The record is a 70-nucleotide sequence from Leptobrachium leishanense, which matches "Small nucleolar RNA SNORD99" in Rfam. It scores 60 bits against the family's covariance model. The literature on the family includes a 2002 paper in Mol Cell Biol by Galardi et al., "Purified box C/D snoRNPs are able to reproduce site-specific 2'-O-methylation of target RNA in vitro". The base pairs follow the family's consensus structure, which was predicted with RNAalifold. Rfam links the family to the GO terms nucleolus and RNA processing. NCBI's taxonomy places the organism under Eukaryota, Gnathostomata, Teleostomi, Euteleostomi, Leptobrachium.

[Rfam]
RNA sequence: CUUGUGCAAUGAUGACUAUAUAUCUGGAGACUGUUGGAUGAAUCCUGCGGAUAUGGGACUGAGCACAGAC
Numbered sequence: 001c002u003u004g005u006g007c008a009a010u011g012a013u014g015a016c017u018a019u020a021u022a023u024c025u026g027g028a029g030a031c032u033g034u035u036g037g038a039u040g041a042a043u044c045c046u047g048c049g050g051a052u053a054u055g056g057g058a059c060u061g062a063g064c065a066c067a068g069a070c
Stems, first nucleotide, its partner, number of pairs: 002068004